[Rfam]
RNA sequence: AGCCUUCUGUAUCCGUGCUGAGAUUUCGUCACACACCAGAUCACAAGAGCUGAUGAGACUUUCAAGGUAAGUGGAGUG
Numbered sequence: 001a002g003c004c005u006u007c008u009g010u011a012u013c014c015g016u017g018c019u020g021a022g023a024u025u026u027c028g029u030c031a032c033a034c035a036c037c038a039g040a041u042c043a044c045a046a047g048a049g050c051u052g053a054u055g056a057g058a059c060u061u062u063c064a065a066g067g068u069a070a071g072u073g074g075a076g077u078g
Stems, first nucleotide, its partner, number of pairs: 002077002005074002008071001010069004016064002020061003024058007
Dot-bracket structure: .((.((.(.((((..((..(((.(((((((.....................)))))))))).)).)))).).)).)).
Overview
Rfam assigns this 78-nucleotide RNA from Schistosoma curassoni to the family "mir-3492 microRNA precursor family". Lineage of the source: Eukaryota > Protostomia > Spiralia > Platyhelminthes > Schistosoma. The family's consensus secondary structure was predicted with RNAalifold. Its family is annotated with RISC complex and miRNA-mediated post-transcriptional gene silencing in the Gene Ontology. A search with the family's covariance model found it, with a score of 74 bits.